Rfam assigns this 128-nucleotide sequence from Atractosteus spatula to the family "Small nucleolar RNA SNORD22".
By type it is a C/D-box small nucleolar RNA.
Rfam links the family to the GO terms RNA processing and nucleolus.
The organism belongs to Atractosteus, within Eukaryota.
[Rfam]
RNA sequence: GCUCGCUGAUGAAACCCGCACGCGUCUUACGCCCCGGGCCGGUGCCAGAACCUGCGAAGGUUGAACCCACUGGUACCGCCGGGGCUGCAGGGGGACGACUUGUUGGGGUGUCCAACUGUCUGAGGGCC
Numbered sequence: 001g002c003u004c005g006c007u008g009a010u011g012a013a014a015c016c017c018g019c020a021c022g023c024g025u026c027u028u029a030c031g032c033c034c035c036g037g038g039c040c041g042g043u044g045c046c047a048g049a050a051c052c053u054g055c056g057a058a059g060g061u062u063g064a065a066c067c068c069a070c071u072g073g074u075a076c077c078g079c080c081g082g083g084g085c086u087g088c089a090g091g092g093g094g095a096c097g098a099c100u101u102g103u104u105g106g107g108g109u110g111u112c113c114a115a116c117u118g119u120c121u122g123a124g125g126g127c128c
Base pairs, nucleotide, nucleotide: 001127002126003125004124